[Rfam]
RNA: ASpks TB sRNA
RNA sequence: CUUGAUCGACCCCAACCACAACGGCUGGUUCUCCGGCCGGUCCUGGCCGUAGGUCGCCAGCAGUGCCUGAGCCUC
Numbered sequence: 001c002u003u004g005a006u007c008g009a010c011c012c013c014a015a016c017c018a019c020a021a022c023g024g025c026u027g028g029u030u031c032u033c034c035g036g037c038c039g040g041u042c043c044u045g046g047c048c049g050u051a052g053g054u055c056g057c058c059a060g061c062a063g064u065g066c067c068u069g070a071g072c073c074u075c
Stems, first nucleotide, its partner, number of pairs: 014026001016024002031071003038065002043060003047056001049054001